This 307-nucleotide RNA from Coptis chinensis belongs to the Rfam family "Plant signal recognition particle RNA".
The literature on the family includes a 2003 paper in Nucleic Acids Res by Rosenblad et al., "SRPDB: Signal Recognition Particle Database".
The source organism's lineage runs through Eukaryota, Streptophytina, Tracheophyta, Magnoliopsida and Coptis.
RNA sequence: GUCGAGCUUGGUAGCGCGAGUUUGUGACCCGAGUGGGGGCAUUGAGAUGGUUGGAUUUGGGCUUGUCUUGAACGGCUGGGCUUUAUGUGGCUAAUAUGCUGGCUUGCCCGUUCCAAGCUGGGAGUUGAUUAUCAUGGUUUGGGCGUAGGUCCGGGCCUUGUUAGUCUUAGAGUGAAGGGCACUGCGUCAGGCUGGCUUCACAGAGCAGCGUUCACCUUCCGCUCUCAGCCGUGGGAGGGAUUACAGGCUAGUGCCUCAUUAGUCCAAUCAGAGCUUGGAUAGCUGGUCCAUUCAGACAACCAUCCCU
Dot-bracket structure: ((((((((((......)))))))....(((....))))))...(.((((((((..(...((((.((.(.....(((((((((....(.((...(....((((((((.((.(((((.(((((((((.(((((.((.(((((((((....))))))))).)).)))))(....).(((((.....((((....(((......)))....))))...))))).)))))))))..))).))))....)))))))))..)))...)))))......)))).....))).))).)....)..)))))))).).

By type it is a non-coding RNA gene. It scores 212 bits against the family's covariance model.